This 116-nucleotide sequence from Cebus imitator belongs to the Rfam family "U5 spliceosomal RNA".
Rfam's curators write: U5 RNA is a component of both types of known spliceosome. The precise function of this molecule is unknown, though it is known that the 5' loop is required for splice site selection and p220 binding, and that both the 3' stem-loop and the Sm site are important for Sm protein binding and cap methylation.
It is annotated as a spliceosomal small nuclear RNA.
[Rfam]
RNA sequence: UGUCUCUGGUUUCUCAUCAAAUUGUAUAAAUCUUUUGACUUUUACUAAAGAUUUCCAUGUAGAGGAACAAUUCUGAGUCUUAAUCCAAUUUUUUGAGGCCCUGUUUCUGCAGGGCU
Numbered sequence: 001u002g003u004c005u006c007u008g009g010u011u012u013c014u015c016a017u018c019a020a021a022u023u024g025u026a027u028a029a030a031u032c033u034u035u036u037g038a039c040u041u042u043u044a045c046u047a048a049a050g051a052u053u054u055c056c057a058u059g060u061a062g063a064g065g066a067a068c069a070a071u072u073c074u075g076a077g078u079c080u081u082a083a084u085c086c087a088a089u090u091u092u093u094u095g096a097g098g099c100c101c102u103g104u105u106u107c108u109g110c111a112g113g114g115c116u
Base pairs, nucleotide, nucleotide: 004077005076006075009068010067011066012065013064014063015062018059019058028054029053030052031051032050033049034048035047096116098115099114100113101112102111103110

The family's consensus secondary structure is taken from published work. A search with the family's covariance model found it, with a score of 93 bits.